[Rfam]
Streptomyces-metH RNA: a 122-nucleotide RNA from Streptomyces buecherae. The match comes from Rfam's covariance-model search (88 bits). It is annotated as a small RNA. The family's consensus secondary structure is taken from published work.
RNA sequence: CCGUCCCGCACAGCGGGACGUCCGGCGCCACUUCGCCCCCGAGGGCUAGGCUGGCCGGGUGCGCCUUCCACCGGAAGACGCAAAGCCGACAGCCGUCGCACCUCAGGGAGAGCACACCCAUG
Numbered sequence: 001c002c003g004u005c006c007c008g009c010a011c012a013g014c015g016g017g018a019c020g021u022c023c024g025g026c027g028c029c030a031c032u033u034c035g036c037c038c039c040c041g042a043g044g045g046c047u048a049g050g051c052u053g054g055c056c057g058g059g060u061g062c063g064c065c066u067u068c069c070a071c072c073g074g075a076a077g078a079c080g081c082a083a084a085g086c087c088g089a090c091a092g093c094c095g096u097c098g099c100a101c102c103u104c105a106g107g108g109a110g111a112g113c114a115c116a117c118c119c120a121u122g
Base pairs, nucleotide, nucleotide: 060082061081062080063079065077066076067075068074085099086098088097089096090095